[Rfam]
RNA: Actinobacteria sRNA Ms_IGR-7
Organism: Nonomuraea polychroma
RNA sequence: ACGAGGUGUCCUUUGAAACGGGCGGCUGGAAGCGUGAAGAACUCCCAUCCUCCCAGCUCAAAGGGCACCUCACGCUAUUUCCCGGGCCUCGCCUCAAGAUUCACACAGUGGAUCCAG
Numbered sequence: 001a002c003g004a005g006g007u008g009u010c011c012u013u014u015g016a017a018a019c020g021g022g023c024g025g026c027u028g029g030a031a032g033c034g035u036g037a038a039g040a041a042c043u044c045c046c047a048u049c050c051u052c053c054c055a056g057c058u059c060a061a062a063g064g065g066c067a068c069c070u071c072a073c074g075c076u077a078u079u080u081c082c083c084g085g086g087c088c089u090c091g092c093c094u095c096a097a098g099a100u101u102c103a104c105a106c107a108g109u110g111g112a113u114c115c116a117g
Stems, first nucleotide, its partner, number of pairs: 003071014020054003024050002027047001029045001031043002098114006